[Rfam]
RNA sequence: CCCUUAACUAAAAAAAAGAUUGUUUGAGGAUUUUAAGUUUUUUUUUAGUCUCGUUUUGGUCCCUUCUGUUAGGUUUCCGUUAGUUUUAAUAAAAAACGUUAAGUGUGGACAUGUGUCACCUUGUCAUUGGCUCUGAGAUUUUUUUUUUUACAAAAAAAAAAACUCAGAGCCAAUGGCAAGGUGACACGUGUCCAGAAGUUAACUUUUUUUUAAAACCCUAACGGAAACCUAACAGAAGGGACCAAAAUGAGACUAAAAAAAAACUUAAAAUCCUCAAACAAUCUUUUUUUUAGUUAAGGGA
Numbered sequence: 001c002c003c004u005u006a007a008c009u010a011a012a013a014a015a016a017a018g019a020u021u022g023u024u025u026g027a028g029g030a031u032u033u034u035a036a037g038u039u040u041u042u043u044u045u046u047a048g049u050c051u052c053g054u055u056u057u058g059g060u061c062c063c064u065u066c067u068g069u070u071a072g073g074u075u076u077c078c079g080u081u082a083g084u085u086u087u088a089a090u091a092a093a094a095a096a097c098g099u100u101a102a103g104u105g106u107g108g109a110c111a112u113g114u115g116u117c118a119c120c121u122u123g124u125c126a127u128u129g130g131c132u133c134u135g136a137g138a139u140u141u142u143u144u145u146u147u148u149u150a151c152a153a154a155a156a157a158a159a160a161a162a163c164u165c166a167g168a169g170c171c172a173a174u175g176g177c178a179a180g181g182u183g184a185c186a187c188g189u190g191u192c193c194a195g196a197a198g199u200u201a202a203c204u205u206u207u208u209u210u211u212a213a214a215a216c217c218c219u220a221a222c223g224g225a226a227a228c229c230u231a232a233c234a235g236a237a238g239g240g241a242c243c244a245a246a247a248u249g250a251g252a253c254u255a256a257a258a259a260a261a262a263a264c265u266u267a268a269a270a271u272c273c274u275c276a277a278a279c280a281a282u283c284u285u286u287u288u289u290u291u292a293g294u295u296a297a298g299g300g301a
Stems, first nucleotide, its partner, number of pairs: 002299007023278003027274003031270013045256020
Dot-bracket structure: .(((((((..............(((.(((.(((((((((((((.((((((((((((((((((((............................................................................................................................................................................)))))))))))))))))))).))))))))))))).))).)))..............)))))))..

MIR2655 microRNA precursor family: a 301-nucleotide sequence from Medicago truncatula. Its family is annotated with miRNA-mediated post-transcriptional gene silencing and RISC complex in the Gene Ontology. NCBI's taxonomy places the organism under Eukaryota, Viridiplantae, Streptophyta, Spermatophyta, Medicago. A search with the family's covariance model found it, with a score of 124 bits.